Rfam assigns this 117-nucleotide RNA from Alkalihalobacillus trypoxylicola to the family "SAM riboswitch aptamer (S box leader)". Gene Ontology term of the family: regulation of gene expression. It scores 80 bits against the family's covariance model. Rfam describes the family as follows. The SAM riboswitch is found upstream of a number of genes which code for proteins involved in methionine or cysteine biosynthesis in Gram-positive bacteria.
[Rfam]
RNA sequence: GACUUAUCAAGAGUGGUGGAGGGAACUGACCCUUAGAAGCCCAGCAACCGGUUUGUUAGCCAAACAAACAAAGGUGCUACUUUCAGCAAAAUGUUCAAACAUUUUGACAGAUAAGUG
Numbered sequence: 001g002a003c004u005u006a007u008c009a010a011g012a013g014u015g016g017u018g019g020a021g022g023g024a025a026c027u028g029a030c031c032c033u034u035a036g037a038a039g040c041c042c043a044g045c046a047a048c049c050g051g052u053u054u055g056u057u058a059g060c061c062a063a064a065c066a067a068a069c070a071a072a073g074g075u076g077c078u079a080c081u082u083u084c085a086g087c088a089a090a091a092u093g094u095u096c097a098a099a100c101a102u103u104u105u106g107a108c109a110g111a112u113a114a115g116u117g
Stems, first nucleotide, its partner, number of pairs: 002116007013042001015041003021032003026086004043078004048074002051069006082109001087106006